[Rfam]
RNA sequence: AAGCUACUGUGUUUUAUGGCUUUUUAUUCCUAUGUGAUAGUGAAUGUGACUCAUGUAGGGAUACAAGCCACUAAAUACAGAGUGAA
Numbered sequence: 001a002a003g004c005u006a007c008u009g010u011g012u013u014u015u016a017u018g019g020c021u022u023u024u025u026a027u028u029c030c031u032a033u034g035u036g037a038u039a040g041u042g043a044a045u046g047u048g049a050c051u052c053a054u055g056u057a058g059g060g061a062u063a064c065a066a067g068c069c070a071c072u073a074a075a076u077a078c079a080g081a082g083u084g085a086a
Stems, first nucleotide, its partner, number of pairs: 005082001007080008017070006026062012

Shown here is an 86-nucleotide sequence from Clarias magur, a member of the family "mir-135 microRNA precursor family". The literature on the family includes a 2002 paper in Curr Biol by Lagos-Quintana et al., "Identification of tissue-specific microRNAs from mouse". Gene Ontology terms of the family: RISC complex and gene silencing by miRNA. The family's consensus secondary structure was predicted with PFOLD. Taxonomically the source falls in Clarias (Eukaryota, Bilateria, Chordata, Actinopteri).